The family of this 38-nucleotide RNA from Shewanella amazonensis is "JUMPstart RNA".
The source organism's lineage runs through Bacteria, Pseudomonadota, Gammaproteobacteria, Shewanellaceae and Shewanella amazonensis.
Rfam 15.1 lists 288 matches to the family in 230 species.
RNA sequence: GGGCACGUUGGAAGCCAAAAUCCAUGGGCGGUAGCGUG
Numbered sequence: 001g002g003g004c005a006c007g008u009u010g011g012a013a014g015c016c017a018a019a020a021u022c023c024a025u026g027g028g029c030g031g032u033a034g035c036g037u038g
Stems, first nucleotide, its partner, number of pairs: 009024004